[Rfam]
A member of the RNA family "Streptococcus sRNA SpF59 (ldcC RNA)", 54 nucleotides long.

RNA sequence: AGACCCAUCCCACGGGGAUUAAAGGCCGAACGGACAGCCGGGGUCGAAUGCCGA
Number, nucleotide and partner (000 for none) at each position: 001a000002g045003a044004c043005c042006c000007a019008u018009c017010c016011c015012a000013c000014g000015g011016g010017g009018a008019u007020u000021a000022a000023a000024g000025g000026c000027c000028g000029a000030a000031c000032g000033g000034a000035c000036a000037g000038c000039c000040g000041g000042g005043g004044u003045c002046g000047a000048a000049u000050g000051c000052c000053g000054a000